[Rfam]
RNA sequence: UUUAUGGAGAGUUUGAUCCUGGCUCAGAACGAACACUGGCGGCGUGGAUUAGGCAUGCAAGUCGAGCGGGAUUCACCUUUUUCAAUUCUUCGGAAGAGAAGUUGGUGAUGAGAGCGGCGAACGGGUGAGUAAUAUAUGGGUAAUUUGCCUUAGAGCUCGGGAUAGCCAUCCGAAAGGGUGGGUAAUACCGAAUGUGCUCGGGUGCUGCAUGGCACCUUAUGUAAAGGUGGGGAUCUUCGGACCUGCCACUCUAAGAUAGGCCCAUAUCCUAUCAGCUUGUUGGUAAGGUAAUGGCUUACCAAGGCUUACGGGUAGCCGACCUGAGAGGGUGACCGGCCACACUGGGACUGAGACACUGCCCAGACUCCUACGGGAGGCUGCAGUCGAGAAUCAUUGUCAAUGCACGAAAGUGUGAACAUGCGACGCCGCGUGGAGGACGACGGCCUUCGGGUUGUAAACUCCUGUCCUGAGGGAGUAAGUGCGAAUGAGUUAAUAGCUCGUUUGUUUGAUAGUACCUCAGAAGAAAGUCACGGCUAACUCUGUGCCAGCAGCCGCGGUAAUACAGAGGUGGCAAGUGUUGUUCGGAUUUACUG
Numbered sequence: 001u002u003u004a005u006g007g008a009g010a011g012u013u014u015g016a017u018c019c020u021g022g023c024u025c026a027g028a029a030c031g032a033a034c035a036c037u038g039g040c041g042g043c044g045u046g047g048a049u050u051a052g053g054c055a056u057g058c059a060a061g062u063c064g065a066g067c068g069g070g071a072u073u074c075a076c077c078u079u080u081u082u083c084a085a086u087u088c089u090u091c092g093g094a095a096g097a098g099a100a101g102u103u104g105g106u107g108a109u110g111a112g113a114g115c116g117g118c119g120a121a122c123g124g125g126u127g128a129g130u131a132a133u134a135u136a137u138g139g140g141u142a143a144u145u146u147g148c149c150u151u152a153g154a155g156c157u158c159g160g161g162a163u164a165g166c167c168a169u170c171c172g173a174a175a176g177g178g179u180g181g182g183u184a185a186u187a188c189c190g191a192a193u194g195u196g197c198u199c200g201g202g203u204g205c206u207g208c209a210u211g212g213c214a215c216c217u218u219a220u221g222u223a224a225a226g227g228u229g230g231g232g233a234u235c236u237u238c239g240g241a242c243c244u245g246c247c248a249c250u251c252u253a254a255g256a257u258a259g260g261c262c263c264a265u266a267u268c269c270u271a272u273c274a275g276c277u278u279g280u281u282g283g284u285a286a287g288g289u290a291a292u293g294g295c296u297u298a299c300c301a302a303g304g305c306u307u308a309c310g311g312g313u314a315g316c317c318g319a320c321c322u323g324a325g326a327g328g329g330u331g332a333c334c335g336g337c338c339a340c341a342c343u344g345g346g347a348c349u350g351a352g353a354c355a356c357u358g359c360c361c362a363g364a365c366u367c368c369u370a371c372g373g374g375a376g377g378c379u380g381c382a383g384u385c386g387a388g389a390a391u392c393a394u395u396g397u398c399a400a401u402g403c404a405c406g407a408a409a410g411u412g413u414g415a416a417c418a419u420g421c422g423a424c425g426c427c428g429c430g431u432g433g434a435g436g437a438c439g440a441c442g443g444c445c446u447u448c449g450g451g452u453u454g455u456a457a458a459c460u461c462c463u464g465u466c467c468u469g470a471g472g473g474a475g476u477a478a479g480u481g482c483g484a485a486u487g488a489g490u491u492a493a494u495a496g497c498u499c500g501u502u503u504g505u506u507u508g509a510u511a512g513u514a515c516c517u518c519a520g521a522a523g524a525a526a527g528u529c530a531c532g533g534c535u536a537a538c539u540c541u542g543u544g545c546c547a548g549c550a551g552c553c554g555c556g557g558u559a560a561u562a563c564a565g566a567g568g569u570g571g572c573a574a575g576u577g578u579u580g581u582u583c584g585g586a587u588u589u590a591c592u593g
Stems, first nucleotide, its partner, number of pairs: 009025005027583004032579006039429006045422002052385003056382003061118003066115002073108005125340003134267008144259002149255007157191004166181006197221001198219001200217007226247006268312003275305003280302008315337004319330004342363005365376004393419001395418003401414005432462004442453004467520006482504007527572005538567005548555002

Rfam assigns this 593-nucleotide part of an RNA from Tichowtungia aerotolerans to the family "Bacterial small subunit ribosomal RNA". The organism belongs to Tichowtungia, within Bacteria. For this family Rfam cites "Crystal structure of the ribosome at 5.5 A resolution" (Yusupov et al., Science, 2001). Rfam 15.1 lists 42,628 matches to the family in 10,626 species.